[Rfam]
RNA: Alphaproteobacterial ar14
Organism: Rhizobium sp. BK251
RNA sequence: AAUCAUCGAAGCGGCGAUCUCCUCCUCCCAAAGCCGCUUUGAUUGGAUCGGUAACACUCCUCCUCCCAGUUACCGAUCAGGUUUGAAGCCCGACGGAUCCUCCCCCGUCGGGCUUUUCCC
Dot-bracket structure: ......(((.(((((.................))))).)))....((((((((((.............)))))))))).......(((((((((((........))))))))))).....